[Rfam]
RNA sequence: AACUUUCCAAUUUGUAAGUCGCUCUGGAUAAGAGCGUCUGCUAAAUGACUUAAA
Numbered sequence: 001a002a003c004u005u006u007c008c009a010a011u012u013u014g015u016a017a018g019u020c021g022c023u024c025u026g027g028a029u030a031a032g033a034g035c036g037u038c039u040g041c042u043a044a045a046u047g048a049c050u051u052a053a054a
Stems, first nucleotide, its partner, number of pairs: 013043001014041003020036006
Shown here is a 54-nucleotide RNA sequence, a member of the family "UnaL2 LINE 3' element". It is annotated as a cis-regulatory element. The eel long interspersed element (LINE) UnaL2 and its partner short interspersed element (SINE) share a conserved 3' tail containing a stem-loop that is critical for their retrotransposition. Presumably, the first step of retrotransposition is the recognition of their 3' tails by UnaL2-encoded reverse transcriptase. On this family, see Baba et al., RNA 2004: "Solution structure of an RNA stem-loop derived from the 3' conserved region of eel LINE UnaL2". The family's consensus secondary structure is taken from published work.